[Rfam]
RNA sequence: GGCUGGAAGACUGUGAUGUGGCAUUUUUUCCAAGCACAUAUCUGACUGUUGCCUGUGGAAAGCAGUUCUUCUGAGUCUUCUGGCC
Numbered sequence: 001g002g003c004u005g006g007a008a009g010a011c012u013g014u015g016a017u018g019u020g021g022c023a024u025u026u027u028u029u030c031c032a033a034g035c036a037c038a039u040a041u042c043u044g045a046c047u048g049u050u051g052c053c054u055g056u057g058g059a060a061a062g063c064a065g066u067u068c069u070u071c072u073g074a075g076u077c078u079u080c081u082g083g084c085c
Base pairs, nucleotide, nucleotide: 001085002084003083004082005081006080008078009077010076011075
RNA: Small nucleolar RNA SNORD121A